Annotation:
This 180-nucleotide RNA sequence from Neopipo cinnamomea belongs to the Rfam family "Connexin-43 internal ribosome entry site (IRES)". The source organism's lineage runs through Eukaryota, Sauria, Dinosauria, Neognathae and Neopipo. A search with the family's covariance model found it, with a score of 75 bits. Rfam's curators write: This family represents the connexin-43 internal ribosome entry site (IRES) which allows cap independent translation during conditions such as heat shock and stress. Gene Ontology term of the family: ribosome binding.

RNA sequence: AACUUUUACGAGGUAUCAGCACUUUUCUUUCAUUAGUGCGGAAGGAAGGAUGAAAAAUACAAAACAGGAGUAGACUUUUUAAGUCGGAGUGCCUGAACGUGCUCUUCCAUUUUACUUUAACCAUCCAAAGAAGUACUCUGAUCCAGUUUUACUGCUGAUCAGCAAGGGUAAGUUGAAAGU
Numbered sequence: 001a002a003c004u005u006u007u008a009c010g011a012g013g014u015a016u017c018a019g020c021a022c023u024u025u026u027c028u029u030u031c032a033u034u035a036g037u038g039c040g041g042a043a044g045g046a047a048g049g050a051u052g053a054a055a056a057a058u059a060c061a062a063a064a065c066a067g068g069a070g071u072a073g074a075c076u077u078u079u080u081a082a083g084u085c086g087g088a089g090u091g092c093c094u095g096a097a098c099g100u101g102c103u104c105u106u107c108c109a110u111u112u113u114a115c116u117u118u119a120a121c122c123a124u125c126c127a128a129a130g131a132a133g134u135a136c137u138c139u140g141a142u143c144c145a146g147u148u149u150u151a152c153u154g155c156u157g158a159u160c161a162g163c164a165a166g167g168g169u170a171a172g173u174u175g176a177a178a179g180u
Stems, first nucleotide, its partner, number of pairs: 003019002007015003029132003033128002036125001037123002040121001041118004049111004056106002073085005087102001089100003142177001144172001147168003150164001152162003